About this RNA:
Rfam assigns this 455-nucleotide RNA from Nibricoccus aquaticus to the family "Bacterial RNase P class A". It scores 164 bits against the family's covariance model. The family's RNA type in Rfam is ribozyme. Taxonomically the source falls in Nibricoccus (Bacteria, Verrucomicrobiota, Opitutia, Opitutaceae).
[Rfam]
RNA sequence: CGCGGCCUAAACGCCGCGCCCGUAUUUGAAACUUGGAGAGGAAAGUCCGGACACCACCGGGCAGGAUUCCCGUCGAGAAACGUCGUCGCGCCGCUGCGACCGGUCGCAAGGCCAUCGCGCGGAUCGCUUCUGCUCAAGCCGGGGCGGUGCGGGCCACAUCCCGCAUCGACGGAUAGUGUCACAGAGAACAAGUAGCCGGUGCGCGCUGCAAAGCGGGUGCCGGUCAUAGUGAAAAGGUGGGGUAAGAGCCCACCGCGCCGCCAGCAAUGGCGGUGGCAGGAAAAACCCAAUCCGGUGCAAGGCAAAAUAGGCGGCUGGGCGGCCCGUCCAACAGCCGCGGGUAUGCCGCAUUUCGCUUCGGCGAAGAGCUGCGCAAGCAGUCUAGAGAAAUGACGAUUACCGCGAUGGCCGAAAGUCCGUCGCGCGCACAGAAUCCGGCUUACCGGUCUCGAAGC
Number, nucleotide and partner (000 for none) at each position: 001c451002g450003c000004g448005g447006c446007c445008u000009a398010a397011a000012c395013g394014c000015c392016g000017c038018g000019c036020c035021c000022g033023u000024a000025u030026u000027u000028g000029a000030a025031a000032c000033u022034u000035g020036g019037a000038g017039a000040g000041g000042a000043a441044a440045g439046u000047c438048c437049g436050g435051a434052c297053a296054c295055c294056a000057c000058c000059g325060g324061g323062c322063a000064g293065g292066a291067u290068u289069c143070c142071c141072g140073u000074c000075g000076a000077g000078a000079a000080a000081c000082g000083u000084c000085g000086u000087c000088g000089c000090g000091c000092c000093g000094c000095u000096g000097c000098g000099a000100c000101c000102g000103g000104u000105c000106g000107c000108a000109a000110g000111g000112c000113c000114a000115u000116c000117g000118c000119g000120c000121g000122g000123a000124u000125c000126g000127c000128u000129u000130c000131u000132g000133c000134u000135c000136a000137a000138g000139c000140c072141g071142g070143g069144g170145c168146g167147g166148u165149g164150c163151g162152g161153g160154c000155c000156a000157c000158a000159u000160c153161c152162c151163g150164c149165a148166u147167c146168g145169a000170c144171g288172g287173a000174u000175a000176g286177u285178g000179u281180c280181a000182c000183a000184g000185a000186g000187a000188a000189c000190a000191a000192g000193u228194a227195g224196c223197c222198g221199g220200u219201g218202c217203g000204c000205g000206c000207u000208g000209c000210a000211a000212a000213g000214c000215g000216g000217g202218u201219g200220c199221c198222g197223g196224u195225c000226a000227u194228a193229g000230u000231g000232a000233a000234a000235a000236g254237g253238u252239g251240g250241g249242g000243u000244a000245a000246g000247a000248g000249c241250c240251c239252a238253c237254c236255g277256c275257g274258c273259c272260g271261c270262c269263a268264g000265c000266a000267a000268u263269g262270g261271c260272g259273g258274u257275g256276g000277c255278a000279g000280g180281a179282a000283a000284a000285a177286c176287c172288c171289a068290a067291u066292c065293c064294g055295g054296u053297g052298c000299a000300a000301g347302g346303c345304a344305a000306a000307a000308u000309a000310g000311g338312c337313g336314g335315c334316u330317g329318g328319g327320c326321g000322g062323c061324c060325c059326g320327u319328c318329c317330a316331a000332c000333a000334g315335c314336c313337g312338c311339g000340g000341g000342u000343a000344u304345g303346c302347c301348g000349c000350a000351u000352u000353u000354c000355g000356c000357u000358u000359c000360g000361g000362c000363g000364a000365a000366g000367a000368g000369c000370u000371g000372c000373g000374c000375a000376a000377g000378c000379a000380g000381u000382c000383u000384a000385g000386a000387g000388a000389a000390a000391u000392g015393a000394c013395g012396a000397u010398u009399a000400c000401c000402g000403c000404g000405a000406u000407g000408g000409c000410c000411g000412a000413a000414a000415g000416u000417c000418c000419g000420u000421c000422g000423c000424g000425c000426g000427c000428a000429c000430a000431g000432a000433a000434u051435c050436c049437g048438g047439c045440u044441u043442a000443c000444c000445g007446g006447u005448c004449u000450c002451g001452a000453a000454g000455c000